Rfam assigns this 165-nucleotide sequence from Paenibacillus durus to the family "Group II catalytic intron D1-D4-3". Rfam describes the family as follows. Group II introns are found in rRNA, tRNA and mRNA of organelles in fungi, plants and protists, and also in mRNA in bacteria. Taxonomically the source falls in Paenibacillus (Bacteria, Bacillota, Bacilli, Caryophanales).
RNA sequence: GCAGUCCAACAGGAUGCGUGCGGAGGGCCUGAAGGCAAAGCCCGGAACAGGCGGCUAAACCAAGUUGGCUGACGAGAUCGGAUAACCCUGCAAAGGAAGGGAAUGUCCAAUACCAUCAUGGGUCUCGGAAGUUAGGAGGACUGGAUUCGGGGGAAAGUCGGUUGA
Numbered sequence: 001g002c003a004g005u006c007c008a009a010c011a012g013g014a015u016g017c018g019u020g021c022g023g024a025g026g027g028c029c030u031g032a033a034g035g036c037a038a039a040g041c042c043c044g045g046a047a048c049a050g051g052c053g054g055c056u057a058a059a060c061c062a063a064g065u066u067g068g069c070u071g072a073c074g075a076g077a078u079c080g081g082a083u084a085a086c087c088c089u090g091c092a093a094a095g096g097a098a099g100g101g102a103a104u105g106u107c108c109a110a111u112a113c114c115a116u117c118a119u120g121g122g123u124c125u126c127g128g129a130a131g132u133u134a135g136g137a138g139g140a141c142u143g144g145a146u147u148c149g150g151g152g153g154a155a156a157g158u159c160g161g162u163u164g165a
Base pairs, nucleotide, nucleotide: 001017002016003015005013006012029164031162035158036157041151042150043149044148045147048143049142050141060139061138068132069131070130073127074126075125076124077123078122080108081107082106083105086101087100088099089098